RNA: Small nucleolar RNA snoR27
RNA sequence: AAUGGAUCAACGAUGUUUGUUAGGAAACUGCGUUAUCUUUCUGUAAUUUCCUUAAUGGGAUUGAAGAUAAUCAUAACAUACUGAGAUCCAUU
Number, nucleotide and partner (000 for none) at each position: 001a092002a091003u090004g089005g088006a087007u086008c000009a000010a000011c000012g000013a000014u000015g000016u000017u000018u000019g000020u000021u000022a000023g000024g000025a000026a000027a000028c000029u000030g000031c000032g000033u000034u000035a000036u000037c000038u000039u000040u000041c000042u000043g000044u000045a000046a000047u000048u000049u000050c000051c000052u000053u000054a000055a000056u000057g000058g000059g000060a000061u000062u000063g000064a000065a000066g000067a000068u000069a000070a000071u000072c000073a000074u000075a000076a000077c000078a000079u000080a000081c000082u000083g000084a000085g000086a007087u006088c005089c004090a003091u002092u001